[Rfam]
RNA: Archaeal signal recognition particle RNA
RNA sequence: UGAUGAGCUAGUUCGGGUAGCCCGGCGUUACCUGUAACCCGAAAUCGCCGAUACGCGGGGGACGAAGCCAAUGGAAGGUUUAUCAAAGAGUUCCGAGCCUGGGGCCUCAACUGAGAAGCCCCGUCCUGCUUGGAUGUUGCUGGUUUGAGGGCUUGCUGGAGAACAGGUCUUCCUAUCUUAACCGCGGAAACCGGUCGAGGUCCGGAAGGGAGCAGACUCACCGUGGGCAAUCAUCGCUUGUGGGGUUGCGGGGUGGAGAAGGGGUGCCAGCCCCCUGGGAUCUCCGAGGUGUAUCAACCUGCGGCGUGCUCAUCA
Numbered sequence: 001u002g003a004u005g006a007g008c009u010a011g012u013u014c015g016g017g018u019a020g021c022c023c024g025g026c027g028u029u030a031c032c033u034g035u036a037a038c039c040c041g042a043a044a045u046c047g048c049c050g051a052u053a054c055g056c057g058g059g060g061g062a063c064g065a066a067g068c069c070a071a072u073g074g075a076a077g078g079u080u081u082a083u084c085a086a087a088g089a090g091u092u093c094c095g096a097g098c099c100u101g102g103g104g105c106c107u108c109a110a111c112u113g114a115g116a117a118g119c120c121c122c123g124u125c126c127u128g129c130u131u132g133g134a135u136g137u138u139g140c141u142g143g144u145u146u147g148a149g150g151g152c153u154u155g156c157u158g159g160a161g162a163a164c165a166g167g168u169c170u171u172c173c174u175a176u177c178u179u180a181a182c183c184g185c186g187g188a189a190a191c192c193g194g195u196c197g198a199g200g201u202c203c204g205g206a207a208g209g210g211a212g213c214a215g216a217c218u219c220a221c222c223g224u225g226g227g228c229a230a231u232c233a234u235c236g237c238u239u240g241u242g243g244g245g246u247u248g249c250g251g252g253g254u255g256g257a258g259a260a261g262g263g264g265u266g267c268c269a270g271c272c273c274c275c276u277g278g279g280a281u282c283u284c285c286g287a288g289g290u291g292u293a294u295c296a297a298c299c300u301g302c303g304g305c306g307u308g309c310u311c312a313u314c315a
Stems, first nucleotide, its partner, number of pairs: 001315008011063004015033007038059004067305003073299002077295003081291001083288001088284003092280003096276002099270004104265005111258002118254007125244005132237001133235004137230003142177003147172009157162001182226006193218004201210003